[Rfam]
RNA sequence: GUGCCGGGACGGCCCGACACUGCCUGCAUCAUCCGGGGACGGCCCUG
Numbered sequence: 001g002u003g004c005c006g007g008g009a010c011g012g013c014c015c016g017a018c019a020c021u022g023c024c025u026g027c028a029u030c031a032u033c034c035g036g037g038g039a040c041g042g043c044c045c046u047g
Stems, first nucleotide, its partner, number of pairs: 001020003005016004034047005
This 47-nucleotide RNA sequence from Jeongeupia sacculi belongs to the Rfam family "Guanidine-II riboswitch aptamer (mini-ykkC)". It scores 41 bits against the family's covariance model. The source organism's lineage runs through Bacteria, Pseudomonadati, Pseudomonadota, Neisseriales and Jeongeupia.